Group II catalytic intron D1-D4-3: a 169-nucleotide RNA from Natronincola ferrireducens. For this family Rfam cites "Control of branch-site choice by a group II intron" (Chu et al., EMBO J, 2001). Pairs were carried over by alignment from the consensus structure.
RNA sequence: UUUUCGGUGACGAAAGGGUCUGAAGGAAGCUGAUGGCGGUUGCUGGAACGGAACGCAAGUGAACCAAAGCUGGCACAUAUGGUGGAUAACCCUUCACAAAGUGGGAACGUCCUAAAAUUAGCUUAGCCAUAUGUGUUAAGAUGGUCGUUUAAGUAACAGGUGGAGCAAC
Number, nucleotide and partner (000 for none) at each position: 001u016002u015003u014004u013005c012006g011007g000008u000009g000010a000011c006012g005013a004014a003015a002016g001017g000018g000019u000020c000021u000022g000023a000024a000025g000026g000027a000028a000029g169030c000031u167032g166033a000034u000035g000036g161037c160038g000039g000040u000041u155042g154043c153044u152045g000046g150047a149048a148049c147050g146051g145052a000053a000054c000055g000056c000057a000058a000059g000060u000061g000062a000063a000064c144065c143066a142067a000068a000069g000070c000071u000072g000073g136074c135075a134076c000077a132078u131079a130080u129081g128082g127083u126084g112085g111086a110087u109088a000089a000090c105091c104092c103093u000094u000095c000096a000097c000098a000099a000100a000101g000102u000103g092104g091105g090106a000107a000108c000109g087110u086111c085112c084113u000114a000115a000116a000117a000118u000119u000120a000121g000122c000123u000124u000125a000126g083127c082128c081129a080130u079131a078132u077133g000134u075135g074136u073137u000138a000139a000140g000141a000142u066143g065144g064145u051146c050147g049148u048149u047150u046151a000152a044153g043154u042155a041156a000157c000158a000159g000160g037161u036162g000163g000164a000165g000166c032167a031168a000169c029